[Rfam]
RNA sequence: UGGACGGAUUAUUGUAUUCGACUGUAUUCACGACGUGAAACAGGGGAUUACGCUGUUUAUAAACGGAAAGUGAAUCAAUUAACAUAAUAGACUCCU
Numbered sequence: 001u002g003g004a005c006g007g008a009u010u011a012u013u014g015u016a017u018u019c020g021a022c023u024g025u026a027u028u029c030a031c032g033a034c035g036u037g038a039a040a041c042a043g044g045g046g047a048u049u050a051c052g053c054u055g056u057u058u059a060u061a062a063a064c065g066g067a068a069a070g071u072g073a074a075u076c077a078a079u080u081a082a083c084a085u086a087a088u089a090g091a092c093u094c095c096u
Stems, first nucleotide, its partner, number of pairs: 002095003009090007017082002020080002023077002026075006034065003038058006